A member of the RNA family "c-di-AMP riboswitch aptamer (ydaO/yuaA leader)" from Paenibacillus dendritiformis, 147 nucleotides long. The match comes from Rfam's covariance-model search (76 bits). Lineage of the source: Bacteria > Bacilli > Caryophanales > Paenibacillaceae > Paenibacillus dendritiformis.
RNA sequence: AGACAAAGAAUGCCGAAUUUCCGGAUGCCCGGAAAGCGGGGGAACCAGUUUUUUGGGUGAAUUGAUCUCAUUCGCUACGAUCAGAGAUCAUAGGGGACCUUCAACCGAACCCUUCAGCUAACCUCGCAGGCAAGGAAGGGGCUUUAU
Numbered sequence: 001a002g003a004c005a006a007a008g009a010a011u012g013c014c015g016a017a018u019u020u021c022c023g024g025a026u027g028c029c030c031g032g033a034a035a036g037c038g039g040g041g042g043a044a045c046c047a048g049u050u051u052u053u054u055g056g057g058u059g060a061a062u063u064g065a066u067c068u069c070a071u072u073c074g075c076u077a078c079g080a081u082c083a084g085a086g087a088u089c090a091u092a093g094g095g096g097a098c099c100u101u102c103a104a105c106c107g108a109a110c111c112c113u114u115c116a117g118c119u120a121a122c123c124u125c126g127c128a129g130g131c132a133a134g135g136a137a138g139g140g141g142c143u144u145u146a147u
Base pairs, nucleotide, nucleotide: 011132012131013130014129018035019034020033021032022031023030024029036127037126038125039124040123041122047053055112056111057110063090064089065088066087067086068085069084093106094105
Its family is annotated with cyclic-di-AMP binding and regulation of gene expression in the Gene Ontology.